[Rfam]
This 132-nucleotide RNA from Cepphus grylle belongs to the Rfam family "Small nucleolar RNA SNORA51". ACA51 is a member of the H/ACA class of snoRNA that guide the sites of modification of uridines to pseudouridines. The organism belongs to Cepphus, within Eukaryota. It scores 51 bits against the family's covariance model. The family has 9 seed sequences and 2,121 matches in Rfam 15.1.

RNA sequence: CGUCUCCCCACGCUUACCGCAGGCAGCUGUUCCUCCGGCUGCCUGUACAGAACGGGGAGGGAGAGCAGCCCCUCCAACGCGCCCCGGCCCGGGCAACUGUGCCAUGGCUGGAGCGUGCCCGGGGGGACAUGU
Numbered sequence: 001c002g003u004c005u006c007c008c009c010a011c012g013c014u015u016a017c018c019g020c021a022g023g024c025a026g027c028u029g030u031u032c033c034u035c036c037g038g039c040u041g042c043c044u045g046u047a048c049a050g051a052a053c054g055g056g057g058a059g060g061g062a063g064a065g066c067a068g069c070c071c072c073u074c075c076a077a078c079g080c081g082c083c084c085c086g087g088c089c090c091g092g093g094c095a096a097c098u099g100u101g102c103c104a105u106g107g108c109u110g111g112a113g114c115g116u117g118c119c120c121g122g123g124g125g126g127a128c129a130u131g132u
Stems, first nucleotide, its partner, number of pairs: 003060006020045003026039004071124004085110003089106001092103003